Shown here is an 81-nucleotide sequence from Acerihabitans arboris, a member of the family "antisense RNA of dnaA mRNA". It scores 74 bits against the family's covariance model. The source organism's lineage runs through Bacteria, Pseudomonadota, Gammaproteobacteria, Enterobacterales and Acerihabitans.
RNA sequence: CCGGGCAUUGGCUUUACGCGCCAUAAUGCCGUUGCCCACCGCCUGCAGCAGAUGCGUCUUGCCCAGCCCGGUGCCGCCGUA
Numbered sequence: 001c002c003g004g005g006c007a008u009u010g011g012c013u014u015u016a017c018g019c020g021c022c023a024u025a026a027u028g029c030c031g032u033u034g035c036c037c038a039c040c041g042c043c044u045g046c047a048g049c050a051g052a053u054g055c056g057u058c059u060u061g062c063c064c065a066g067c068c069c070g071g072u073g074c075c076g077c078c079g080u081a
Stems, first nucleotide, its partner, number of pairs: 004043003009038003013034001016032003020029002051078001053076002056074002061072003